The family of this 67-nucleotide RNA sequence from Phyllostomus discolor is "mir-302 microRNA precursor family". Rfam 15.1 lists 2,090 matches to the family in 516 species. The match comes from Rfam's covariance-model search (74 bits). Taxonomically the source falls in Phyllostomus (Eukaryota, Eumetazoa, Bilateria, Boreoeutheria).
RNA sequence: CUUUGACUUUAACAUGGAAGUGCUUUCUGUGACCUAAGUAGUAAGUGCUUCCAUGUUUUAGUAGAAG
Numbered sequence: 001c002u003u004u005g006a007c008u009u010u011a012a013c014a015u016g017g018a019a020g021u022g023c024u025u026u027c028u029g030u031g032a033c034c035u036a037a038g039u040a041g042u043a044a045g046u047g048c049u050u051c052c053a054u055g056u057u058u059u060a061g062u063a064g065a066a067g
Stems, first nucleotide, its partner, number of pairs: 001067003006062003011057015027041002
Dot-bracket structure: (((..(((..(((((((((((((((.((...........)).)))))))))))))))..)))..)))